[Rfam]
RNA sequence: UAGCAAUAAGGGCGGAAUAGGUAGCCGCCACCACGUUUUUACGGUAGGAGAUGAAGAUUACCACCUUCUAUUGCUU
Numbered sequence: 001u002a003g004c005a006a007u008a009a010g011g012g013c014g015g016a017a018u019a020g021g022u023a024g025c026c027g028c029c030a031c032c033a034c035g036u037u038u039u040u041a042c043g044g045u046a047g048g049a050g051a052u053g054a055a056g057a058u059u060a061c062c063a064c065c066u067u068c069u070a071u072u073g074c075u076u
Base pairs, nucleotide, nucleotide: 002075003074004073005072006071007070008069011029012028013027014026015025020062021061022060023059031048034043035042036041053068054067055066056065